Description:
TPP riboswitch aptamer (THI element): a 126-nucleotide RNA from Muribaculaceae bacterium Isolate-080. Vitamin B(1) in its active form thiamin pyrophosphate (TPP) is an essential coenzyme that is synthesised by coupling of pyrimidine and thiazole moieties in bacteria. The match comes from Rfam's covariance-model search (65 bits). The base pairs follow the family's consensus structure, which is taken from published work.
RNA sequence: UAAUAGAUUUAGGGGUGUCCGUCUUGGCUGGAUGCGUUUUGCCGCAUCAGGCAGACAGGUCUGAGAUUAUACCCUUUGAACCUGAUCCGGGUAAUACCGGCGUAGAGAAAAAUUAUGAAAAAAUUG
Numbered sequence: 001u002a003a004u005a006g007a008u009u010u011a012g013g014g015g016u017g018u019c020c021g022u023c024u025u026g027g028c029u030g031g032a033u034g035c036g037u038u039u040u041g042c043c044g045c046a047u048c049a050g051g052c053a054g055a056c057a058g059g060u061c062u063g064a065g066a067u068u069a070u071a072c073c074c075u076u077u078g079a080a081c082c083u084g085a086u087c088c089g090g091g092u093a094a095u096a097c098c099g100g101c102g103u104a105g106a107g108a109a110a111a112a113u114u115a116u117g118a119a120a121a122a123a124u125u126g
Stems, first nucleotide, its partner, number of pairs: 006114005011075004016069001017061001019059002082105003087100004